[Rfam]
RNA: Eukaryotic large subunit ribosomal RNA, nucleotides 1260 to 1782
Organism: Samia ricini
RNA sequence: CCGUCCGAAGUUUCCCUCAGGAUAGCUGGCGUCGAUGUUUGAACAGUCUCAUCCGGUAAAGCGAAUGAUUAGAGGCAUUGGGGCCGAAACGACCUCAACCUAUUCUCAAACUUUAAAUGGGUGAGAACUCCGGCUUACUCGAACGAUGAAGCCGGAGAUCUGAUGACGGUGCCAAGUGGGCCAAUUUUGGUAAGCAGAACUGGCGCUGUGGGAUGAACCAAACGUAGUGUUAAGGCGCCUAAAAAACGCUCAUGGGACACCAUGAAAGGCGUUGGUCGCUCAUGACAGCAGGACGGUGGCCAUGGAAGUCGGAAUCCGCUAAGGAGUGUGCAACGACUCACCUGCCGAAGCAACCAGCCCUGAAAAUGGAUGGCGCUGAAGCGUUUUGCCUAUACACUACCGUUACAGGCACGUGAGAUGCGCUCACGCGCGUAUCAUUAAGCCGUAACGAGUAGGACGUGCGCGGCGGAGAGCGCAGAAGGGUCUGGGCGCGAGCCCGCCUGGAGCCUCCGUCGGUGCAGAU
Numbered sequence: 001c002c003g004u005c006c007g008a009a010g011u012u013u014c015c016c017u018c019a020g021g022a023u024a025g026c027u028g029g030c031g032u033c034g035a036u037g038u039u040u041g042a043a044c045a046g047u048c049u050c051a052u053c054c055g056g057u058a059a060a061g062c063g064a065a066u067g068a069u070u071a072g073a074g075g076c077a078u079u080g081g082g083g084c085c086g087a088a089a090c091g092a093c094c095u096c097a098a099c100c101u102a103u104u105c106u107c108a109a110a111c112u113u114u115a116a117a118u119g120g121g122u123g124a125g126a127a128c129u130c131c132g133g134c135u136u137a138c139u140c141g142a143a144c145g146a147u148g149a150a151g152c153c154g155g156a157g158a159u160c161u162g163a164u165g166a167c168g169g170u171g172c173c174a175a176g177u178g179g180g181c182c183a184a185u186u187u188u189g190g191u192a193a194g195c196a197g198a199a200c201u202g203g204c205g206c207u208g209u210g211g212g213a214u215g216a217a218c219c220a221a222a223c224g225u226a227g228u229g230u231u232a233a234g235g236c237g238c239c240u241a242a243a244a245a246a247c248g249c250u251c252a253u254g255g256g257a258c259a260c261c262a263u264g265a266a267a268g269g270c271g272u273u274g275g276u277c278g279c280u281c282a283u284g285a286c287a288g289c290a291g292g293a294c295g296g297u298g299g300c301c302a303u304g305g306a307a308g309u310c311g312g313a314a315u316c317c318g319c320u321a322a323g324g325a326g327u328g329u330g331c332a333a334c335g336a337c338u339c340a341c342c343u344g345c346c347g348a349a350g351c352a353a354c355c356a357g358c359c360c361u362g363a364a365a366a367u368g369g370a371u372g373g374c375g376c377u378g379a380a381g382c383g384u385u386u387u388g389c390c391u392a393u394a395c396a397c398u399a400c401c402g403u404u405a406c407a408g409g410c411a412c413g414u415g416a417g418a419u420g421c422g423c424u425c426a427c428g429c430g431c432g433u434a435u436c437a438u439u440a441a442g443c444c445g446u447a448a449c450g451a452g453u454a455g456g457a458c459g460u461g462c463g464c465g466g467c468g469g470a471g472a473g474c475g476c477a478g479a480a481g482g483g484u485c486u487g488g489g490c491g492c493g494a495g496c497c498c499g500c501c502u503g504g505a506g507c508c509u510c511c512g513u514c515g516g517u518g519c520a521g522a523u
Stems, first nucleotide, its partner, number of pairs: 001461001002459005011024001013022003027174007047126008059114001060112002066108003071103001073101003078098006085091001128157009180204004185199005209220003224400005230394001234390003243387002247383003267361003271358006278351003288345005294318003300312002319323001324339001328337002401450006408444003462518001464515008473507002481502002488497003